[Rfam]
RNA sequence: GUGUUUUUCAUGGUAUUAGAUUUUUUAAGGUUAUCAAAUAACAGAACAGAAACAGAGAGGGUGUCGUGAGACAUCCUCUUUUGUUUUU
Number, nucleotide and partner (000 for none) at each position: 001g000002u000003g000004u000005u000006u000007u000008u000009c000010a000011u000012g000013g000014u000015a000016u000017u000018a000019g000020a000021u000022u000023u000024u000025u000026u000027a000028a000029g000030g000031u000032u000033a000034u000035c000036a000037a000038a000039u000040a000041a000042c000043a000044g000045a000046a000047c000048a000049g000050a000051a000052a000053c000054a000055g000056a000057g000058a000059g076060g075061g074062u073063g072064u071065c070066g000067u000068g000069a000070g065071a064072c063073a062074u061075c060076c059077u000078c000079u000080u000081u000082u000083g000084u000085u000086u000087u000088u000
RNA: Bacteroidetes FopS (family of paralogous sRNAs)